RNA sequence: UUGAGUUAAACGCUGAAUCCAGGUAGAACACCUGGAGCGGGGGAACCACUUUUUUGGGGUGAAUCGAAUCUAUAUUCGAGGGGCUACCCUUAAGGCCCUAACCCGUCAGCUAACUUCGUAAGCGUUUUAAGGGAGGGGAC
Number, nucleotide and partner (000 for none) at each position: 001u000002u000003g000004a000005g000006u000007u000008a000009a000010a000011c124012g123013c122014u121015g000016a000017a000018u036019c035020c034021a033022g032023g031024u030025a000026g000027a000028a000029c000030a024031c023032c022033u021034g020035g019036a018037g119038c118039g117040g116041g115042g114043g000044a000045a000046c000047c056048a055049c000050u000051u000052u000053u000054u000055u048056g047057g104058g103059g102060u000061g000062a000063a000064u000065c078066g077067a076068a075069u000070c000071u000072a000073u000074a000075u068076u067077c066078g065079a000080g000081g098082g097083g096084c095085u000086a000087c000088c000089c000090u000091u000092a000093a000094g000095g084096c083097c082098c081099u000100a000101a000102c059103c058104c057105g000106u000107c000108a000109g000110c000111u000112a000113a000114c042115u041116u040117c039118g038119u037120a000121a014122g013123c012124g011125u000126u000127u000128u000129a000130a000131g000132g000133g000134a000135g000136g000137g000138g000139a000140c000
A member of the RNA family "c-di-AMP riboswitch aptamer (ydaO/yuaA leader)" from Thermosyntropha lipolytica, 140 nucleotides long. Rfam links the family to the GO terms cyclic-di-AMP binding and regulation of gene expression. A search with the family's covariance model found it, with a score of 110 bits.